[Rfam]
RNA: FuFi-1 RNA
RNA sequence: UGCUAUGGCUACAUAGUGCGGAACCAAAACCGCCUAAGUGAAGCGACUGCCAAGAAACAUAUAGUGGUUUUAUAUGUGAAUAAAGAUGAAAGAGGGGAGCCGAACUGAUACAGCUCAGUAUAAAUAGGGGGCGACCACCGUUAAACAAUACGAGAAAAACUGAUCUGUCUGGUAAAGUUCAGUAAUGUAUCUCGGUUGCCAAAAAACUAAGUGUUAACGGCAUCUUAUUCUAGCAACAGUUUCGGGUAAACAAAUUUGGGGAUAGCUGUCUGCGAAACCACCGCAGGCGGCUUUUC
Numbered sequence: 001u002g003c004u005a006u007g008g009c010u011a012c013a014u015a016g017u018g019c020g021g022a023a024c025c026a027a028a029a030c031c032g033c034c035u036a037a038g039u040g041a042a043g044c045g046a047c048u049g050c051c052a053a054g055a056a057a058c059a060u061a062u063a064g065u066g067g068u069u070u071u072a073u074a075u076g077u078g079a080a081u082a083a084a085g086a087u088g089a090a091a092g093a094g095g096g097g098a099g100c101c102g103a104a105c106u107g108a109u110a111c112a113g114c115u116c117a118g119u120a121u122a123a124a125u126a127g128g129g130g131g132c133g134a135c136c137a138c139c140g141u142u143a144a145a146c147a148a149u150a151c152g153a154g155a156a157a158a159a160c161u162g163a164u165c166u167g168u169c170u171g172g173u174a175a176a177g178u179u180c181a182g183u184a185a186u187g188u189a190u191c192u193c194g195g196u197u198g199c200c201a202a203a204a205a206a207c208u209a210a211g212u213g214u215u216a217a218c219g220g221c222a223u224c225u226u227a228u229u230c231u232a233g234c235a236a237c238a239g240u241u242u243c244g245g246g247u248a249a250a251c252a253a254a255u256u257u258g259g260g261g262a263u264a265g266c267u268g269u270c271u272g273c274g275a276a277a278c279c280a281c282c283g284c285a286g287g288c289g290g291c292u293u294u295u296c
Stems, first nucleotide, its partner, number of pairs: 001045004006040002018033004024259005046240004057077007064281007078230006085224004264292011